Shown here is a 49-nucleotide RNA sequence from Streptomyces sp. Ag109_O5-10, a member of the family "raiA-hairpin RNA". Lineage of the source: Bacteria > Actinomycetota > Actinomycetes > Kitasatosporales > Streptomyces. Rfam classes the family as a small RNA. Pairs were carried over by alignment from the consensus structure, which is taken from published work. The match comes from Rfam's covariance-model search (61 bits).
[Rfam]
RNA sequence: CGCCGAGUCCGAGGCUCCGGGGUUCACCGGGGCUGGGUGCAAAAAGGGA
Numbered sequence: 001c002g003c004c005g006a007g008u009c010c011g012a013g014g015c016u017c018c019g020g021g022g023u024u025c026a027c028c029g030g031g032g033c034u035g036g037g038u039g040c041a042a043a044a045a046g047g048g049a
Stems, first nucleotide, its partner, number of pairs: 013034008